RNA: Small nucleolar RNA Z266
Organism: Apium graveolens
RNA sequence: AAGGAGCAAGAAUGAUGAUACAAUUAGAUGUGUUAAAGGUGAAAAAAUCCUUAAUGAACUCAACAAAUUGAGGCAUUAUUCAUUCAUACUACCUGACUUGCUAUUA
Numbered sequence: 001a002a003g004g005a006g007c008a009a010g011a012a013u014g015a016u017g018a019u020a021c022a023a024u025u026a027g028a029u030g031u032g033u034u035a036a037a038g039g040u041g042a043a044a045a046a047a048u049c050c051u052u053a054a055u056g057a058a059c060u061c062a063a064c065a066a067a068u069u070g071a072g073g074c075a076u077u078a079u080u081c082a083u084u085c086a087u088a089c090u091a092c093c094u095g096a097c098u099u100g101c102u103a104u105u106a
Base pairs, nucleotide, nucleotide: 002105003104005102006101007100008099009098010097